[Rfam]
The family of this 208-nucleotide sequence from Enterococcus casseliflavus is "Enterococcus sRNA 2410". By type it is a small RNA. The literature on the family includes a 2017 paper in Sci Rep by Sinel et al., "Small RNAs in vancomycin-resistant Enterococcus faecium involved in daptomycin response and resistance". A search with the family's covariance model found it, with a score of 85 bits. About the family: Produced as 2 transcripts on Northern blot. Expressed in mid, late exponential and early stationary phases of growth. Expression remained uniform under daptomycin exposure. The family has 3 seed sequences and 74 matches in Rfam 15.1.
RNA sequence: UUAGCUACUUUAGAUAGUUUGUAUUCAUAUCACAUUAUGGAUGCAAACCAAAAACGAGUUUUGUUUGUAUCUAUGAUGGCUAAAGCAUUUUAACUUGAACUUGCAGCCAUGUAGAAAAUCUUCUAAAUGGUUGCCAAUAGACGUUUACGCUUGGUAUAGGAUCGAAUCCAUUUAGACGAUUGUCUGAAUGGAUUUUUUUGUUCAGGUA
Numbered sequence: 001u002u003a004g005c006u007a008c009u010u011u012a013g014a015u016a017g018u019u020u021g022u023a024u025u026c027a028u029a030u031c032a033c034a035u036u037a038u039g040g041a042u043g044c045a046a047a048c049c050a051a052a053a054a055c056g057a058g059u060u061u062u063g064u065u066u067g068u069a070u071c072u073a074u075g076a077u078g079g080c081u082a083a084a085g086c087a088u089u090u091u092a093a094c095u096u097g098a099a100c101u102u103g104c105a106g107c108c109a110u111g112u113a114g115a116a117a118a119u120c121u122u123c124u125a126a127a128u129g130g131u132u133g134c135c136a137a138u139a140g141a142c143g144u145u146u147a148c149g150c151u152u153g154g155u156a157u158a159g160g161a162u163c164g165a166a167u168c169c170a171u172u173u174a175g176a177c178g179a180u181u182g183u184c185u186g187a188a189u190g191g192a193u194u195u196u197u198u199u200g201u202u203c204a205g206g207u208a
Base pairs, nucleotide, nucleotide: 001083002082003081004080005079006078007077011073012072013071014070015069016068017048018047019046020045021044022043023042024041025040026039027038028037052066053065054064055063095139100133105132106131107130108129109128110127112125113124114123140184141183142182143181145179146178